A member of the RNA family "Group I catalytic intron" from Claviceps africana, 272 nucleotides long. Rfam describes the family as follows. Group I catalytic introns are large self-splicing ribozymes. They catalyse their own excision from mRNA, tRNA and rRNA precursors in a wide range of organisms. The core secondary structure consists of 9 paired regions (P1-P9). These fold to essentially two domains - the P4-P6 domain (formed from the stacking of P5, P4, P6 and P6a helices) and the P3-P9 domain (formed from the P8, P3, P7 and P9 helices). The secondary structure mark-up for this family represents only this conserved core. Group I catalytic introns often have long ORFs inserted in loop regions. The window size for this search is chosen to minimise search time and catch the small examples. A larger window size will find more matches. Pairs were carried over by alignment from the consensus structure, which is taken from published work.
RNA sequence: AUGAUAAGGUUAUAAUACAGCCUUUUUGUAAAAGUGAACCUUUUGCGUUAAACCUUCAAAUUGCGGGGAAACCCUAAAGGGAUCAUAACCAAGUAAGUAUGGUAACAUAACUUAUGGCUCAGGUAACGACUCGAGGUACGGUAAAAUCAUGAUUUAUGUUACAAUGGGUAAUCCGCAGCCAAGUACCAAUUAUUAAUAGGUAUGCAGUUCAUCGACUAAAUGUAGGUUAGCGCAAGCUUAAGAUAUAGUCAGGCCUCAUCUGAAAAGAUGCA
Number, nucleotide and partner (000 for none) at each position: 001a000002u000003g000004a000005u000006a024007a023008g022009g021010u020011u019012a000013u017014a000015a000016u000017a013018c000019a011020g010021c009022c008023u007024u006025u000026u000027u000028g000029u000030a000031a000032a000033a000034g000035u000036g000037a000038a000039c000040c000041u000042u000043u000044u000045g000046c000047g000048u000049u000050a000051a228052a227053c226054c225055u224056u000057c222058a221059a000060a000061u000062u177063g176064c175065g174066g173067g172068g000069a000070a000071a000072c168073c167074c166075u000076a000077a000078a000079g000080g000081g000082a000083u000084c000085a000086u000087a000088a000089c000090c000091a000092a000093g000094u000095a000096a000097g000098u000099a000100u000101g000102g000103u000104a000105a000106c000107a000108u000109a000110a000111c000112u000113u000114a000115u000116g000117g000118c000119u000120c000121a000122g000123g000124u000125a000126a000127c000128g000129a000130c000131u000132c000133g000134a000135g000136g000137u000138a000139c000140g000141g000142u000143a000144a000145a000146a000147u000148c000149a000150u000151g000152a000153u000154u000155u000156a000157u000158g000159u000160u000161a000162c000163a000164a000165u000166g074167g073168g072169u000170a000171a000172u067173c066174c065175g064176c063177a062178g208179c207180c000181a000182a000183g203184u202185a201186c200187c000188a000189a000190u000191u000192a197193u000194u000195a000196a000197u192198a000199g000200g186201u185202a184203u183204g000205c000206a000207g179208u178209u000210c000211a000212u251213c000214g250215a249216c248217u247218a246219a000220a000221u058222g057223u000224a055225g054226g053227u052228u051229a000230g237231c236232g000233c000234a000235a000236g231237c230238u000239u000240a000241a000242g000243a000244u000245a000246u218247a217248g216249u215250c214251a212252g000253g000254c000255c000256u000257c270258a269259u268260c267261u266262g000263a000264a000265a000266a261267g260268a259269u258270g257271c000272a000

A search with the family's covariance model found it, with a score of 103 bits.
Rfam links the family to the GO term Group I intron splicing.